[Rfam]
RNA sequence: GAUCUCGGGUAAUCGCGGUCAGCAUCGGCUGGCUGAGGAAAGUCCAUGCUCGCACAGGCUGAGAUGCCUGUAGUGUUCGUGCUCGGUGAAAAAAUAAGCCGGGGGACUUCGCAAGAAGUUACGGCGGAAGAACGCGCUAAGGCUCUGCUAUGCGUUAAUAUUCCUGAAAGUGCCACAGCGACGACGACGUUACUGGAAACGGUAACGGUGGAACGCGGUAAACCCCUCGAGCGGGCAACCCAAACUACGGUAGGGGCGCUUCACAUAUGGAAAUGAACGAAAUGUGGGGGGAGAGUUUUUACUCUCGAGAUAGAUGAUUACCGCUACGUAUCACGUGCCUGACGUUUUACGUAGUACGGAACAUGGCUUACAGCG
Dot-bracket structure: ...(.(((((((((.((((((........))))))....[[[.[[[[[(((((((((((......)))))).....(((.(((((((..........))))))(((((((....)))))).)((.((((....((((...(((...)))..)))).....)))).....(((((.............((((((((....)))))))).........)))..))))).))))))))...(((...........)))...(((((((.................))))))).(((((......))))).........))))))).(((((((.................))))))).......]]]]]]]].).).)
RNA: Bacterial RNase P class B